[Rfam]
RNA sequence: UGCAGCCCAGUCAAAUUCGGUCCCUGUCCCCCAGUGUCGGGGACCGGCCACCGGCUGCCACAGCAACCUCUGUGCUCCGCGUGUCCCUGUCCCCUCCCGUGGGACCUGGGCACACGGAUCC
Numbered sequence: 001u002g003c004a005g006c007c008c009a010g011u012c013a014a015a016u017u018c019g020g021u022c023c024c025u026g027u028c029c030c031c032c033a034g035u036g037u038c039g040g041g042g043a044c045c046g047g048c049c050a051c052c053g054g055c056u057g058c059c060a061c062a063g064c065a066a067c068c069u070c071u072g073u074g075c076u077c078c079g080c081g082u083g084u085c086c087c088u089g090u091c092c093c094c095u096c097c098c099g100u101g102g103g104a105c106c107u108g109g110g111c112a113c114a115c116g117g118a119u120c121c
Stems, first nucleotide, its partner, number of pairs: 002058004018046009028036001072113006084104004
RNA: Small nucleolar RNA SNORA5
Organism: Falcunculus frontatus